[Rfam]
RNA sequence: GGCCUCUCGCCACGGGUAUGGUAGCAUAUUCAGAUGCAAGGACCAUCUCUGUCAGGAGUUGGCUGAAAUGGACUUUUCACCUUUUGAUAGGAAGCUGCGGACCCUUUGAAGCAUGGUUCUGCGGUGCCAUUCCGGGUGAUGAUAUGU
Number, nucleotide and partner (000 for none) at each position: 001g000002g063003c062004c061005u000006c000007u058008c000009g000010c000011c000012a000013c051014g050015g049016g048017u000018a046019u000020g044021g043022u042023a000024g037025c036026a035027u000028a000029u000030u000031c000032a000033g000034a000035u026036g025037c024038a000039a000040g000041g000042a022043c021044c020045a000046u018047c000048u016049c015050u014051g013052u000053c000054a000055g000056g000057a000058g007059u000060u000061g004062g003063c002064u000065g000066a000067a000068a000069u000070g000071g000072a000073c000074u000075u000076u000077u139078c138079a137080c136081c135082u000083u000084u000085u000086g000087a000088u000089a000090g128091g127092a000093a000094g000095c124096u123097g122098c000099g119100g118101a117102c116103c115104c000105u000106u000107u000108g000109a000110a000111g000112c000113a000114u000115g103116g102117u101118u100119c099120u000121g000122c097123g096124g095125u000126g000127c091128c090129a000130u000131u000132c000133c000134g000135g081136g080137u079138g078139a077140u000141g000142a000143u000144a000145u000146g000147u000
Small nucleolar RNA snoR2/U65: a 147-nucleotide sequence from Chara braunii.
Rfam links the family to the GO terms nucleolus and RNA processing.
Its Rfam clan is "SNORA65 clan".
Rfam classes the family as an H/ACA-box small nucleolar RNA.
A search with the family's covariance model found it, with a score of 58 bits.